[Rfam]
Background:
This 524-nucleotide part of an RNA from Cavenderia multistipes belongs to the Rfam family "Eukaryotic small subunit ribosomal RNA". The literature on the family includes a 2002 paper in BMC Bioinformatics by Cannone et al., "The comparative RNA web (CRW) site: an online database of comparative sequence and structure information for ribosomal, intron, and other RNAs". The sequence is in the family's curated seed alignment. The organism belongs to Cavenderia, within Eukaryota. Rfam links the family to the GO terms structural constituent of ribosome and ribosome.
RNA sequence: CAGUUAAAACGUUCGUAGCUUAAAUACAGGUCUGUGUAAUUGCUUGUCACGUCGUUCGCGGCGUGACAAGCGCAGGCGCGGUAGAUUGUCAUGUCUAGUCGGCAACGGCUAGGCGCGGCGUUCAACUGUGCAUAAAUCUUGAUGCUCAAGGUGAGUCCAGGCGUGGACGGGAAAACAGUGCAUGGUAUUGUAGAAGAAGACGUGGCAACGUCUAGGUUGGUUGGUUGUCCAGGUAAUGAUUAAUAGGGAGGAGCGGGGGCUGUCGUAUUGACGGGCGAGAGGUGAAAUUCGUUGACCCUGUCAAGACGCACAACGGCGGAAGCAGCAGCCAAGUGCCUCUCCAUUAGUCAAGAACGAUAGUCUAGGGAUCAAAGACGAUCAGAUACCGUCGUAGUCUAGACCAUAAACUAUGUCGGCUAACACUUGGCGACGUGCUCUCCGAGGCGUCUCCAGGAGUUUGUGGGAAACCAUAAGCUUUUGGACUCUGGGGGGAGUAUGGCCGCAAGACUGAAACUUAAAGGAAU
Numbered sequence: 001c002a003g004u005u006a007a008a009a010c011g012u013u014c015g016u017a018g019c020u021u022a023a024a025u026a027c028a029g030g031u032c033u034g035u036g037u038a039a040u041u042g043c044u045u046g047u048c049a050c051g052u053c054g055u056u057c058g059c060g061g062c063g064u065g066a067c068a069a070g071c072g073c074a075g076g077c078g079c080g081g082u083a084g085a086u087u088g089u090c091a092u093g094u095c096u097a098g099u100c101g102g103c104a105a106c107g108g109c110u111a112g113g114c115g116c117g118g119c120g121u122u123c124a125a126c127u128g129u130g131c132a133u134a135a136a137u138c139u140u141g142a143u144g145c146u147c148a149a150g151g152u153g154a155g156u157c158c159a160g161g162c163g164u165g166g167a168c169g170g171g172a173a174a175a176c177a178g179u180g181c182a183u184g185g186u187a188u189u190g191u192a193g194a195a196g197a198a199g200a201c202g203u204g205g206c207a208a209c210g211u212c213u214a215g216g217u218u219g220g221u222u223g224g225u226u227g228u229c230c231a232g233g234u235a236a237u238g239a240u241u242a243a244u245a246g247g248g249a250g251g252a253g254c255g256g257g258g259g260c261u262g263u264c265g266u267a268u269u270g271a272c273g274g275g276c277g278a279g280a281g282g283u284g285a286a287a288u289u290c291g292u293u294g295a296c297c298c299u300g301u302c303a304a305g306a307c308g309c310a311c312a313a314c315g316g317c318g319g320a321a322g323c324a325g326c327a328g329c330c331a332a333g334u335g336c337c338u339c340u341c342c343a344u345u346a347g348u349c350a351a352g353a354a355c356g357a358u359a360g361u362c363u364a365g366g367g368a369u370c371a372a373a374g375a376c377g378a379u380c381a382g383a384u385a386c387c388g389u390c391g392u393a394g395u396c397u398a399g400a401c402c403a404u405a406a407a408c409u410a411u412g413u414c415g416g417c418u419a420a421c422a423c424u425u426g427g428c429g430a431c432g433u434g435c436u437c438u439c440c441g442a443g444g445c446g447u448c449u450c451c452a453g454g455a456g457u458u459u460g461u462g463g464g465a466a467a468c469c470a471u472a473a474g475c476u477u478u479u480g481g482a483c484u485c486u487g488g489g490g491g492g493a494g495u496a497u498g499g500c501c502g503c504a505a506g507a508c509u510g511a512a513a514c515u516u517a518a519a520g521g522a523a524u
Base pairs, nucleotide, nucleotide: 001487002486003485009484011355012354013353014352018348019347020346246342247341248340250337251336253334254333258330259329260328261327262326263325264308265307268304269303270302271301272300273299274298275297279290280289281288316323317322360401361400362399363398364397365396370394374390375389376388377387412483413482414481415476416475417474419458420457421456424453425452426451427450429448430447431446432445433444462469463468489516490515491514498509499508501506